[Rfam]
RNA: mir-71 microRNA precursor family
RNA sequence: UCUGCAAGAAAGACAUGGGUAGUGAGAUAGUGGCUCUUAGUACUGGUAGAUCUCACUACCUUGUCUUUCAUGUUGAU
Numbered sequence: 001u002c003u004g005c006a007a008g009a010a011a012g013a014c015a016u017g018g019g020u021a022g023u024g025a026g027a028u029a030g031u032g033g034c035u036c037u038u039a040g041u042a043c044u045g046g047u048a049g050a051u052c053u054c055a056c057u058a059c060c061u062u063g064u065c066u067u068u069c070a071u072g073u074u075g076a077u
Stems, first nucleotide, its partner, number of pairs: 008069008017061003021057008